[Rfam]
RNA: speF leader
Organism: Tianweitania sediminis
RNA sequence: UGUCGGUGGUCCAAUCGCCGGCAAUUACUAAAGAGGCACACCUUCCUUGCCGGUAGUGCGGUUGGGUUUUCCCAUCCAAGCCAAGGCAGACAAAGCGGGCAGGAGCCGGGCAGGCUUUUGCUCACCGCCGCGCCGUUAGUUGUUCUGGUUCCGG
Dot-bracket structure: ((((((((.......))))))))...........((((.........))))......(((.........................(.........)......(((((.....))))).............))).....................
Numbered sequence: 001u002g003u004c005g006g007u008g009g010u011c012c013a014a015u016c017g018c019c020g021g022c023a024a025u026u027a028c029u030a031a032a033g034a035g036g037c038a039c040a041c042c043u044u045c046c047u048u049g050c051c052g053g054u055a056g057u058g059c060g061g062u063u064g065g066g067u068u069u070u071c072c073c074a075u076c077c078a079a080g081c082c083a084a085g086g087c088a089g090a091c092a093a094a095g096c097g098g099g100c101a102g103g104a105g106c107c108g109g110g111c112a113g114g115c116u117u118u119u120g121c122u123c124a125c126c127g128c129c130g131c132g133c134c135g136u137u138a139g140u141u142g143u144u145c146u147g148g149u150u151c152c153g154g
Stems, first nucleotide, its partner, number of pairs: 001023008035051004058133003086096001103117005